Shown here is a 66-nucleotide RNA from Nannospalax galili, a member of the family "Small nucleolar RNA SNORD43".
Lineage of the source: Eukaryota > Bilateria > Eutheria > Muroidea > Nannospalax.
Rfam describes the family as follows. U43 is a C/D box small nucleolar RNA that is encoded in intron 1 of the ribosomal protein L3 gene in human and cow. Three other snoRNAs ( U82, U83a and U83b) are also encoded in the same host gene but from different introns.
Its Rfam clan is "SNORD43 clan".
Rfam 15.1 lists 264 matches to the family in 132 species.
For this family Rfam cites "The high diversity of snoRNAs in plants: identification and comparative study of 120 snoRNA genes from Oryza sativa" (Chen et al., Nucleic Acids Res, 2003).
RNA sequence: CAUAAAUGAUGAACCUUUUUGACGGGCGGACAGAAACUCUGUGCUGAUUGUCAAGUUCUGAUAAUG
Numbered sequence: 001c002a003u004a005a006a007u008g009a010u011g012a013a014c015c016u017u018u019u020u021g022a023c024g025g026g027c028g029g030a031c032a033g034a035a036a037c038u039c040u041g042u043g044c045u046g047a048u049u050g051u052c053a054a055g056u057u058c059u060g061a062u063a064a065u066g
Base pairs, nucleotide, nucleotide: 001066002065003064004062